[Rfam]
RNA sequence: CUCGGCGGCCUGCCGAAUCCGUGCGGCAAGGAGCACGGAGCCGGGGACCCAAUUGACCUUCCACCCGGGAGGUCGGGGGUGAAUCGGCGCCUCGCGCGCCGUAGGGCUGCUUCCCUGCCCGAAUCCGUCAGCUAACCCGGUAGGCGUAAGUGGAAGAUCCU
Numbered sequence: 001c002u003c004g005g006c007g008g009c010c011u012g013c014c015g016a017a018u019c020c021g022u023g024c025g026g027c028a029a030g031g032a033g034c035a036c037g038g039a040g041c042c043g044g045g046g047a048c049c050c051a052a053u054u055g056a057c058c059u060u061c062c063a064c065c066c067g068g069g070a071g072g073u074c075g076g077g078g079g080u081g082a083a084u085c086g087g088c089g090c091c092u093c094g095c096g097c098g099c100c101g102u103a104g105g106g107c108u109g110c111u112u113c114c115c116u117g118c119c120c121g122a123a124u125c126c127g128u129c130a131g132c133u134a135a136c137c138c139g140g141u142a143g144g145c146g147u148a149a150g151u152g153g154a155a156g157a158u159c160c161u
Stems, first nucleotide, its partner, number of pairs: 011146004018039007040141006050076001077126003085101004104120004